[Rfam]
RNA sequence: AACGACAGGUUACUAGCCUGAAAAGGCUUAGGCUGGUGAUUUUAUAAUCACCAGCCU
Numbered sequence: 001a002a003c004g005a006c007a008g009g010u011u012a013c014u015a016g017c018c019u020g021a022a023a024a025g026g027c028u029u030a031g032g033c034u035g036g037u038g039a040u041u042u043u044a045u046a047a048u049c050a051c052c053a054g055c056c057u
Stems, first nucleotide, its partner, number of pairs: 015028004031056010
Dot-bracket structure: ..............((((......))))..((((((((((......)))))))))).
RNA: Pseudomonas sRNA P26
Organism: Paraglaciecola mesophila